A member of the RNA family "Plastid-psbA-3 3UTR RNA" from Nicotiana tabacum, 56 nucleotides long.
[Rfam]
RNA sequence: AAAGAAGCAAUACACCCUCUUGAUAGAACAAGAAAAUGAUUAUUGCUCCUUUCUUU
Number, nucleotide and partner (000 for none) at each position: 001a052002a051003a050004g049005a000006a047007g046008c045009a044010a043011u042012a041013c000014a000015c000016c000017c000018u033019c032020u031021u030022g029023a000024u000025a000026g000027a000028a000029c022030a021031a020032g019033a018034a000035a000036a000037u000038g000039a000040u000041u012042a011043u010044u009045g008046c007047u006048c000049c004050u003051u002052u001053c000054u000055u000056u000

It scores 54 bits against the family's covariance model.
The literature on the family includes a 2023 paper in Plant Commun by Richter et al., "Retrograde signaling in plants: A critical review focusing on the GUN pathway and beyond".
Lineage of the source: Eukaryota > Viridiplantae > Euphyllophyta > Pentapetalae > Nicotiana.
The base pairs follow the family's consensus structure, which was predicted with LocARNA.